[Rfam]
RNA sequence: AAAACGAAAGGCAAUGAAGUCUGCCUGAAACGCCCUCACGUUCUGGGAUGAUGACUUCUACUCACGC
Numbered sequence: 001a002a003a004a005c006g007a008a009a010g011g012c013a014a015u016g017a018a019g020u021c022u023g024c025c026u027g028a029a030a031c032g033c034c035c036u037c038a039c040g041u042u043c044u045g046g047g048a049u050g051a052u053g054a055c056u057u058c059u060a061c062u063c064a065c066g067c
Stems, first nucleotide, its partner, number of pairs: 010025004016058006033047003
The record is a 67-nucleotide RNA from Desulfacinum hydrothermale, which matches "Fluoride riboswitch aptamer (crcB RNA motif)" in Rfam.
The organism belongs to Desulfacinum hydrothermale, within Bacteria.